Shown here is a 381-nucleotide RNA from Tropicimonas sediminicola, a member of the family "Bacterial RNase P class A". The source organism's lineage runs through Bacteria, Pseudomonadati, Alphaproteobacteria, Rhodobacterales and Tropicimonas. Ribonuclease P (RNase P) is a ubiquitous endoribonuclease, found in archaea, bacteria and eukarya as well as chloroplasts and mitochondria. Its Rfam clan is "RNaseP clan".

RNA sequence: GCGGAUGGCUGGAUGGCCGCGGUGCCGGUGCAAGCCGGGGCCGAGGAAAGUCCGGACUCCCUGAAGCAACGGUGCCGGGUAACGCCCGGGCGGGGAAACCCGACGGAAAGCGCCACAGAGAACAGACCGCCGCGCUUGCGCGGCAAGGGUGAAACGGUGGGGUAAGAGCCCACCGCGGGGCUGGCAACAGCACCGGCACGGCAAGCCCCACCGGGAGCAAUGCCACAUAGGACCUCCGCGGGGCAUGUCCCCGGGGCCGCUUCAGCCCCAGGCAGGUCGGGUAGGCAGCUUGAGCCCGUCGGCAACGGCGGGCCGAGAGGAAUGGUCAUCCAGGGGGGCUCGCCCCCCGGACAGAAUCCGGCUUACAGGCCGUCCGCGCGC
Numbered sequence: 001g002c003g004g005a006u007g008g009c010u011g012g013a014u015g016g017c018c019g020c021g022g023u024g025c026c027g028g029u030g031c032a033a034g035c036c037g038g039g040g041c042c043g044a045g046g047a048a049a050g051u052c053c054g055g056a057c058u059c060c061c062u063g064a065a066g067c068a069a070c071g072g073u074g075c076c077g078g079g080u081a082a083c084g085c086c087c088g089g090g091c092g093g094g095g096a097a098a099c100c101c102g103a104c105g106g107a108a109a110g111c112g113c114c115a116c117a118g119a120g121a122a123c124a125g126a127c128c129g130c131c132g133c134g135c136u137u138g139c140g141c142g143g144c145a146a147g148g149g150u151g152a153a154a155c156g157g158u159g160g161g162g163u164a165a166g167a168g169c170c171c172a173c174c175g176c177g178g179g180g181c182u183g184g185c186a187a188c189a190g191c192a193c194c195g196g197c198a199c200g201g202c203a204a205g206c207c208c209c210a211c212c213g214g215g216a217g218c219a220a221u222g223c224c225a226c227a228u229a230g231g232a233c234c235u236c237c238g239c240g241g242g243g244c245a246u247g248u249c250c251c252c253g254g255g256g257c258c259g260c261u262u263c264a265g266c267c268c269c270a271g272g273c274a275g276g277u278c279g280g281g282u283a284g285g286c287a288g289c290u291u292g293a294g295c296c297c298g299u300c301g302g303c304a305a306c307g308g309c310g311g312g313c314c315g316a317g318a319g320g321a322a323u324g325g326u327c328a329u330c331c332a333g334g335g336g337g338g339c340u341c342g343c344c345c346c347c348c349g350g351a352c353a354g355a356a357u358c359c360g361g362c363u364u365a366c367a368g369g370c371c372g373u374c375c376g377c378g379c380g381c
Base pairs, nucleotide, nucleotide: 001377002376003375004374005373006372007371008370009369010368011366012330013329014328015327016326017325018324020043021042022041023040025038026037027036028035048364049363050362052361053360054359055358056357057217058216059215060214065262066261070213071212072211073210074209075089076088077087078086079085090104091102092101093100094099105208106207110206111205112202113201114200127148128147129144130143131142132141133140134139156174157173158172159171160170161169175197176195177194178193180191181190182189183188221287222286223285224284231278232277233276234275235274253269254268255267256266257265294313295312296311297310298309299308300307301306
Record summary
Rfam classes the family as a ribozyme. Rfam links the family to the GO terms dimeric ribonuclease P complex, ribonuclease P activity and tRNA processing.